Streptococcus sRNA SpF44: a 102-nucleotide RNA sequence from Streptococcus peroris. On this family, see Mann et al., PLoS Pathog 2012: "Control of virulence by small RNAs in Streptococcus pneumoniae". Rfam classes the family as a small RNA.

[Rfam]
Nucleotides: 102
Base pairs, nucleotide, nucleotide: 002021003020004019005018006017009016010015027101029099030098032096033095034094045074046073047072049070050069051068052067053066054065076091077090079088080087
Number, partner (000 for none) and nucleotide at each position: 001000a002021u003020g004019u005018c006017a007000u008000c009016c010015u011000g012000u013000g014000a015010g016009g017006u018005g019004a020003c021002a022000a023000a024000g025000a026000c027101a028000c029099a030098g031000a032096a033095a034094c035000u036000u037000a038000u039000c040000g041000u042000u043000c044000u045074u046073u047072a048000a049070u050069g051068a052067a053066g054065a055000c056000u057000a058000a059000c060000a061000a062000u063000g064000u065054u066053u067052u068051u069050u070049a071000a072047u073046a074045a075000a076091g077090u078000c079088u080087u081000a082000c083000u084000c085000u086000g087080a088079g089000a090077g091076c092000c093000u094034g095033u096032u097000g098030c099029u100000a101027u102000a